[Rfam]
RNA sequence: GCCUCGUGGAUCUGCGACGGCGAGAGGAAGUGGACGUGCAGGUCGAUGCCGCCGGCGGUGAGGAUCUUGCCCUCGCCGGAGAUGACGUCGGUCGACGGGCCGAUGCGCAGCGCCGGGUCGACGCCGUCGGCGAUGUCGGGGUUGCCGGCCCGCCCGAUGCCGACGAUGCGCCCGUCGCGGAUGCCGACGUCGGCCUUGACGACGCCCCACCAGUCGAGCACGACGGCGUUGGUGACGACGGUGUCCGGGGCGCCCUCGGCCCGGGUCGUCGUGCCCUGCGCCAUCGACUCGCGGAU
Numbered sequence: 001g002c003c004u005c006g007u008g009g010a011u012c013u014g015c016g017a018c019g020g021c022g023a024g025a026g027g028a029a030g031u032g033g034a035c036g037u038g039c040a041g042g043u044c045g046a047u048g049c050c051g052c053c054g055g056c057g058g059u060g061a062g063g064a065u066c067u068u069g070c071c072c073u074c075g076c077c078g079g080a081g082a083u084g085a086c087g088u089c090g091g092u093c094g095a096c097g098g099g100c101c102g103a104u105g106c107g108c109a110g111c112g113c114c115g116g117g118u119c120g121a122c123g124c125c126g127u128c129g130g131c132g133a134u135g136u137c138g139g140g141g142u143u144g145c146c147g148g149c150c151c152g153c154c155c156g157a158u159g160c161c162g163a164c165g166a167u168g169c170g171c172c173c174g175u176c177g178c179g180g181a182u183g184c185c186g187a188c189g190u191c192g193g194c195c196u197u198g199a200c201g202a203c204g205c206c207c208c209a210c211c212a213g214u215c216g217a218g219c220a221c222g223a224c225g226g227c228g229u230u231g232g233u234g235a236c237g238a239c240g241g242u243g244u245c246c247g248g249g250g251c252g253c254c255c256u257c258g259g260c261c262c263g264g265g266u267c268g269u270c271g272u273g274c275c276c277u278g279c280g281c282c283a284u285c286g287a288c289u290c291g292c293g294g295a296u
Base pairs, nucleotide, nucleotide: 001296003294005293006292007291008290009289011166012165015162016161019077020076021075022074023073024072031054032053033052035051036050038049039048040047058070059069060068078155079154084149086147091145092144094142096140098137099136100135105131106130108129110127111126112125114123115122171280173278174277177274178273179272180270181269182268183267184265185264193227194226195225197223207216231261232260237255241253242252243251